The family of this 79-nucleotide RNA from Sphaeramia orbicularis is "Small nucleolar RNA SNORD72". For this family Rfam cites "RNomics: an experimental approach that identifies 201 candidates for novel, small, non-messenger RNAs in mouse" (Huttenhofer et al., EMBO J, 2001). From the family's description: snoRNA HBII-240 belongs to the CD family of snoRNAs. It is the human orthologue of the mouse MBII-240 and is predicted to guide 2'O-ribose methylation of the large 28S rRNA at residue U4590. Gene Ontology terms of the family: RNA processing and nucleolus.
[Rfam]
RNA sequence: UGCUUUACCAGUGAUGGUGAAAAUAAAUGUCUGAACAAAUGAACUUUAUGUGAUAUCAGUAUUUACUCUGAGGUAAGCA
Numbered sequence: 001u002g003c004u005u006u007a008c009c010a011g012u013g014a015u016g017g018u019g020a021a022a023a024u025a026a027a028u029g030u031c032u033g034a035a036c037a038a039a040u041g042a043a044c045u046u047u048a049u050g051u052g053a054u055a056u057c058a059g060u061a062u063u064u065a066c067u068c069u070g071a072g073g074u075a076a077g078c079a
Stems, first nucleotide, its partner, number of pairs: 002078003006075004
The organism belongs to Sphaeramia, within Eukaryota. Rfam 15.1 lists 726 matches to the family in 499 species. It scores 65 bits against the family's covariance model.